[Rfam]
RNA sequence: AGUCUGCUGUGAUGAACUGCAUGUUCAGUCCAUGUUUCACCUGAUUUACCUUGAUUACACACAUGCCCUGAGCAGACU
Number, nucleotide and partner (000 for none) at each position: 001a078002g077003u076004c075005u074006g073007c072008u000009g000010u000011g000012a000013u000014g000015a000016a000017c000018u000019g000020c000021a000022u000023g000024u000025u000026c000027a000028g000029u000030c000031c000032a000033u000034g000035u000036u000037u000038c000039a000040c000041c000042u000043g000044a000045u000046u000047u000048a000049c000050c000051u000052u000053g000054a000055u000056u000057a000058c000059a000060c000061a000062c000063a000064u000065g000066c000067c000068c000069u000070g000071a000072g007073c006074a005075g004076a003077c002078u001